The record is an 86-nucleotide RNA from Ornithinibacillus halotolerans, which matches "Glycine riboswitch aptamer" in Rfam. Its family is annotated with glycine biosynthetic process in the Gene Ontology.

[Rfam]
RNA sequence: CCUCUGGAGAGUGUUUGUCUUAACAAACCACCCACGAAGCACGCAUUUAUCAAUAAAUGCUAAACUUUCUGGUUACAGGACAGAGG
Numbered sequence: 001c002c003u004c005u006g007g008a009g010a011g012u013g014u015u016u017g018u019c020u021u022a023a024c025a026a027a028c029c030a031c032c033c034a035c036g037a038a039g040c041a042c043g044c045a046u047u048u049a050u051c052a053a054u055a056a057a058u059g060c061u062a063a064a065c066u067u068u069c070u071g072g073u074u075a076c077a078g079g080a081c082a083g084a085g086g
Stems, first nucleotide, its partner, number of pairs: 001086006013028004030073003034068001037067003043060005

The organism belongs to Ornithinibacillus, within Bacteria. This family represents the bacterial glycine riboswitch. Glycine riboswitches usually consist of two metabolite-binding aptamers domains with similar structures in tandem. The aptamers cooperatively bind glycine to regulate the expression of downstream genes. In Bacillus subtilis, this riboswitch is found upstream of the gcvT operon which controls glycine degradation.